[Rfam]
RNA sequence: CCGUGGACUGAAGUCCACGGCUACCACUGUGCCGUCCUUACAGGACU
Numbered sequence: 001c002c003g004u005g006g007a008c009u010g011a012a013g014u015c016c017a018c019g020g021c022u023a024c025c026a027c028u029g030u031g032c033c034g035u036c037c038u039u040a041c042a043g044g045a046c047u
Stems, first nucleotide, its partner, number of pairs: 001020008034046005
RNA: Acido-Lenti-1 RNA
Organism: bacterium K02(2017)